[Rfam]
RNA sequence: GUUGCUCUAACGGGGUGUUGUCCGGAAACGGACGGCUGAGAGGCGCAUGCCAACCCGAAGAACCUGAUCCGGCUCAUACCGGCGGAGGGAUUAGACGCGUCACAAAA
Numbered sequence: 001g002u003u004g005c006u007c008u009a010a011c012g013g014g015g016u017g018u019u020g021u022c023c024g025g026a027a028a029c030g031g032a033c034g035g036c037u038g039a040g041a042g043g044c045g046c047a048u049g050c051c052a053a054c055c056c057g058a059a060g061a062a063c064c065u066g067a068u069c070c071g072g073c074u075c076a077u078a079c080c081g082g083c084g085g086a087g088g089g090a091u092u093a094g095a096c097g098c099g100u101c102a103c104a105a106a107a
Base pairs, nucleotide, nucleotide: 006095007094008093009092010091011057012056013055014054017036018035019034020033021032022031023030043050044049063088064087065086069082070081071080072079
Rfam assigns this 107-nucleotide RNA sequence from Georhizobium profundi to the family "TPP riboswitch aptamer (THI element)". The organism belongs to Georhizobium, within Bacteria.